[Rfam]
Nucleotides: 086
Stems, first nucleotide, its partner, number of pairs: 001086006
Number, partner (000 for none) and nucleotide at each position: 001086u002085c003084u004083g005082g006081c007000c008000a009000u010000g011000a012000c013000g014000a015000c016000a017000c018000c019000c020000u021000u022000g023000c024000c025000c026000u027000c028000g029000c030000u031000g032000a033000g034000a035000a036000c037000a038000g039000u040000g041000u042000u043000u044000g045000c046000u047000g048000a049000g050000g051000a052000g053000a054000g055000c056000a057000c058000u059000u060000c061000u062000g063000u064000g065000u066000g067000c068000u069000c070000a071000g072000u073000g074000g075000a076000g077000c078000c079000g080000a081006g082005c083004c084003a085002g086001a
The family of this 86-nucleotide sequence from Aegotheles bennettii is "Small nucleolar RNA SNORD103/SNORD85". The family has 41 seed sequences and 1,349 matches in Rfam 15.1. A search with the family's covariance model found it, with a score of 58 bits. By type it is a C/D-box small nucleolar RNA. On this family, see Huttenhofer et al., EMBO J 2001: "RNomics: an experimental approach that identifies 201 candidates for novel, small, non-messenger RNAs in mouse".